A member of the RNA family "TPP riboswitch aptamer (THI element)" from Dictyobacter aurantiacus, 117 nucleotides long. Gene Ontology term of the family: thiamine pyrophosphate binding. Rfam 15.1 lists 16,130 matches to the family in 8,693 species. About the family: Vitamin B(1) in its active form thiamin pyrophosphate (TPP) is an essential coenzyme that is synthesised by coupling of pyrimidine and thiazole moieties in bacteria.
RNA sequence: AUUUGCUGCUAGGGGAGUCUUCGGACUGAGAUGCUGGCGCAUUCAUAAGCAUAUGCGUCACGACCCUUGGAACUUGAUCUGGAUCAUACCAGCGUAGGGAAGUAGCAGAUCUGAUUG
Numbered sequence: 001a002u003u004u005g006c007u008g009c010u011a012g013g014g015g016a017g018u019c020u021u022c023g024g025a026c027u028g029a030g031a032u033g034c035u036g037g038c039g040c041a042u043u044c045a046u047a048a049g050c051a052u053a054u055g056c057g058u059c060a061c062g063a064c065c066c067u068u069g070g071a072a073c074u075u076g077a078u079c080u081g082g083a084u085c086a087u088a089c090c091a092g093c094g095u096a097g098g099g100a101a102g103u104a105g106c107a108g109a110u111c112u113g114a115u116u117g
Base pairs, nucleotide, nucleotide: 006105007104008103009102010101011067012066013065014064017026018025019024035060036059037058038057039056040055041054042053073098074097075096076095079092080091081090082089